RNA sequence: GGCACGGACACGGGGUGCCGCCCAGCGGCUGAGAACACACCCGUCGAACCUGAUCUAGCUCGAACUAGCGAAGGGAAUGUCGUGAUCGCCACGU
Dot-bracket structure: ......((((((((.((((((...))))).......)..)))).....(((...((((......))))...)))...)))).............
RNA: TPP riboswitch aptamer (THI element)
Organism: Kocuria rhizophila